A member of the RNA family "Small nucleolar RNA snoR99" from Durio zibethinus, 102 nucleotides long. The organism belongs to Durio, within Eukaryota. The family's consensus secondary structure was predicted with WAR. Its family is annotated with RNA processing and nucleolus in the Gene Ontology.
[Rfam]
RNA sequence: GUGCUUUAGGAAUGAACAAGUCCCUUAUACCUAAUAUCCAUCUAAAUCACUUUGUCAGUGGCCUUUUUUGUGGCUUAUUGAUCAUUAUGGGAUGGAAACUGC
Numbered sequence: 001g002u003g004c005u006u007u008a009g010g011a012a013u014g015a016a017c018a019a020g021u022c023c024c025u026u027a028u029a030c031c032u033a034a035u036a037u038c039c040a041u042c043u044a045a046a047u048c049a050c051u052u053u054g055u056c057a058g059u060g061g062c063c064u065u066u067u068u069u070g071u072g073g074c075u076u077a078u079u080g081a082u083c084a085u086u087a088u089g090g091g092a093u094g095g096a097a098a099c100u101g102c
Base pairs, nucleotide, nucleotide: 037096038095039094040093041092042091054082055081056080057079058078059077060076061075